[Rfam]
RNA sequence: CACUUAUCCAGAAAGGCAGAGGGUACUGGCCCUGCGAAGCCUUAGCAACCAAUUCCGCCGGCAGGCGGGAAAAAGGUGCUAAUUCCGGCCCUGUUCAAACGGGGAAAGAUAAGUU
Numbered sequence: 001c002a003c004u005u006a007u008c009c010a011g012a013a014a015g016g017c018a019g020a021g022g023g024u025a026c027u028g029g030c031c032c033u034g035c036g037a038a039g040c041c042u043u044a045g046c047a048a049c050c051a052a053u054u055c056c057g058c059c060g061g062c063a064g065g066c067g068g069g070a071a072a073a074a075g076g077u078g079c080u081a082a083u084u085c086c087g088g089c090c091c092u093g094u095u096c097a098a099a100c101g102g103g104g105a106a107a108g109a110u111a112a113g114u115u
Stems, first nucleotide, its partner, number of pairs: 002114007013043005021032003026088004044080004049076002053071003084107001089104006

This 115-nucleotide RNA from Chitinophaga lutea belongs to the Rfam family "SAM riboswitch aptamer (S box leader)". The base pairs follow the family's consensus structure, which is taken from published work.